[Rfam]
RNA sequence: ACUGUGCGAUGAUGUGAGAGGUUGCCGACACACCCGGCCCCUUUGCCAUAGAGUGGUGAUUCGGGGGUCGUCGGGUUUUCUCACGGAGUAUGUCCGAUUCCAAAAUUGGACGA
Dot-bracket structure: .............(((.((((...(((((........................................)))))..)))).)))......((((((((......)))))))).
RNA: S10-Clostridia ribosomal protein leader